[Rfam]
RNA sequence: ACGCCGAAUCCUGCCGCCGCCCGGAUGACCGGUCGACAGAUGUGCAUCGGCAGGAGUGGAGGACCCAGCAAGACGGGCCGCCGGAGAGAACCGGGCGGUCCUUGGGGUGAAGCCGCGUACGCGGCCGGGCUACUUCGCCAGCCCGAAUCCGACAGGUCAUCCUUCACAGGCGGUUGACGAAGGGUUG
Numbered sequence: 001a002c003g004c005c006g007a008a009u010c011c012u013g014c015c016g017c018c019g020c021c022c023g024g025a026u027g028a029c030c031g032g033u034c035g036a037c038a039g040a041u042g043u044g045c046a047u048c049g050g051c052a053g054g055a056g057u058g059g060a061g062g063a064c065c066c067a068g069c070a071a072g073a074c075g076g077g078c079c080g081c082c083g084g085a086g087a088g089a090a091c092c093g094g095g096c097g098g099u100c101c102u103u104g105g106g107g108u109g110a111a112g113c114c115g116c117g118u119a120c121g122c123g124g125c126c127g128g129g130c131u132a133c134u135u136c137g138c139c140a141g142c143c144c145g146a147a148u149c150c151g152a153c154a155g156g157u158c159a160u161c162c163u164u165c166a167c168a169g170g171c172g173g174u175u176g177a178c179g180a181a182g183g184g185u186u187g
Stems, first nucleotide, its partner, number of pairs: 002172004009055008056167006066104002105150003113124004127144004
The family of this 187-nucleotide RNA from Streptomyces fagopyri is "c-di-AMP riboswitch aptamer (ydaO/yuaA leader)". From the family's description: This family represents a conserved RNA structure found upstream of the ydaO and yuaA genes in Bacillus subtilis and related genes in other bacteria.